[Rfam]
RNA sequence: CUCCAGUUAAAUCUCAGCUGGCAACUGUGAGUUUGGAGUCCCUCACAGCGCUAGCUGAGGUUCUCCUGAAC
Numbered sequence: 001c002u003c004c005a006g007u008u009a010a011a012u013c014u015c016a017g018c019u020g021g022c023a024a025c026u027g028u029g030a031g032u033u034u035g036g037a038g039u040c041c042c043u044c045a046c047a048g049c050g051c052u053a054g055c056u057g058a059g060g061u062u063c064u065c066c067u068g069a070a071c
Base pairs, nucleotide, nucleotide: 004068005067006066010062011061012060013059014058015057016056017055021052026047027046028045029044030043031042
Source information
The family of this 71-nucleotide sequence from Oryzias javanicus is "mir-216 microRNA precursor family". NCBI's taxonomy places the organism under Eukaryota, Osteoglossocephalai, Beloniformes, Oryziinae, Oryzias. Clan: mir-216 clan.